[Rfam]
RNA sequence: AGAGUGGGCUGAGUGAUCGCUGUUGUUUUCGCGCGAGCGCGAAGAGAGCAGAGGAAAGUCCGGGCUCCGUAGAACACGGUGGUGGGUAACGCCCACCGUCCGCGAGGACCGGGAAAGUGCAACAGAAAGUAAACCGCCGAUGAGCGGUCAGGAGUUAGGAUUCAGGAUUUAGGGUGUCGGAAUAGGUCUCGGUCGAGUUGUCGAUGAACUCAAGGAAGUGAAGUCGUGCGUCUGAUCUUCACGAGGACGACAAGUGUUGAGAACACAAGAGAUACCAGGUUGCUCGAACCGCAAGACAUUCCAGGCUCAACAGAGCACUGAAUCCCAAAUCCUAACUCCUGCCGCAACAGGUAAGGGUGAAACGGUGCGGUAAGAGCGCACCGCAGGGCUGGUGACAGUCCUGGCAUGGUAAACCCCACCGGGAGCAAGACCAAGCAGGGCGAAGUGUGUUGCGGCAACGUGAUGCACACGUAGCUGUUCGCUGCGUUAGACGUCCGGGUCGGUCGCGUCGAGGUGCUUGAGCAAUCAGCACCCCAGAGAAAUGAUCACUCCCGACAGAACCCGGCUUACAGGCCCACUCUGGAU
Numbered sequence: 001a002g003a004g005u006g007g008g009c010u011g012a013g014u015g016a017u018c019g020c021u022g023u024u025g026u027u028u029u030c031g032c033g034c035g036a037g038c039g040c041g042a043a044g045a046g047a048g049c050a051g052a053g054g055a056a057a058g059u060c061c062g063g064g065c066u067c068c069g070u071a072g073a074a075c076a077c078g079g080u081g082g083u084g085g086g087u088a089a090c091g092c093c094c095a096c097c098g099u100c101c102g103c104g105a106g107g108a109c110c111g112g113g114a115a116a117g118u119g120c121a122a123c124a125g126a127a128a129g130u131a132a133a134c135c136g137c138c139g140a141u142g143a144g145c146g147g148u149c150a151g152g153a154g155u156u157a158g159g160a161u162u163c164a165g166g167a168u169u170u171a172g173g174g175u176g177u178c179g180g181a182a183u184a185g186g187u188c189u190c191g192g193u194c195g196a197g198u199u200g201u202c203g204a205u206g207a208a209c210u211c212a213a214g215g216a217a218g219u220g221a222a223g224u225c226g227u228g229c230g231u232c233u234g235a236u237c238u239u240c241a242c243g244a245g246g247a248c249g250a251c252a253a254g255u256g257u258u259g260a261g262a263a264c265a266c267a268a269g270a271g272a273u274a275c276c277a278g279g280u281u282g283c284u285c286g287a288a289c290c291g292c293a294a295g296a297c298a299u300u301c302c303a304g305g306c307u308c309a310a311c312a313g314a315g316c317a318c319u320g321a322a323u324c325c326c327a328a329a330u331c332c333u334a335a336c337u338c339c340u341g342c343c344g345c346a347a348c349a350g351g352u353a354a355g356g357g358u359g360a361a362a363c364g365g366u367g368c369g370g371u372a373a374g375a376g377c378g379c380a381c382c383g384c385a386g387g388g389c390u391g392g393u394g395a396c397a398g399u400c401c402u403g404g405c406a407u408g409g410u411a412a413a414c415c416c417c418a419c420c421g422g423g424a425g426c427a428a429g430a431c432c433a434a435g436c437a438g439g440g441c442g443a444a445g446u447g448u449g450u451u452g453c454g455g456c457a458a459c460g461u462g463a464u465g466c467a468c469a470c471g472u473a474g475c476u477g478u479u480c481g482c483u484g485c486g487u488u489a490g491a492c493g494u495c496c497g498g499g500u501c502g503g504u505c506g507c508g509u510c511g512a513g514g515u516g517c518u519u520g521a522g523c524a525a526u527c528a529g530c531a532c533c534c535c536a537g538a539g540a541a542a543u544g545a546u547c548a549c550u551c552c553c554g555a556c557a558g559a560a561c562c563c564g565g566c567u568u569a570c571a572g573g574c575c576c577a578c579u580c581u582g583g584a585u
Stems, first nucleotide, its partner, number of pairs: 001581010011570001012550007020051005026045007056568003060565005065425004072480004077421005082096005097111001098109004112416002117414002119410002134356002136352003141347001364382006383405001384403008429505004438496005471485005513533005519528003
Dot-bracket structure: ((((((((((((((((((.(((((.(((((((......))))))).)))))....[[[.[[[[[((((...[[[[.((((((((((.....)))))(((((....)))).)((...((((.............(((((..(.............................................................................................................................................................................................................)..)))..)).......((((((.......))))))(((((((((....)))))))).)...))..)))))))))))))...((((.....(((((............................(((((.]]]])))))......))))).....)))).......(((((.(((....))))))))..........)))))))..........]]]]]]]].).))))))))))....
Bacterial RNase P class A: a 585-nucleotide sequence from Thalassoglobus polymorphus. Taxonomically the source falls in Thalassoglobus (Bacteria, Pseudomonadati, Planctomycetia, Planctomycetaceae). The match comes from Rfam's covariance-model search (274 bits). By type it is a ribozyme.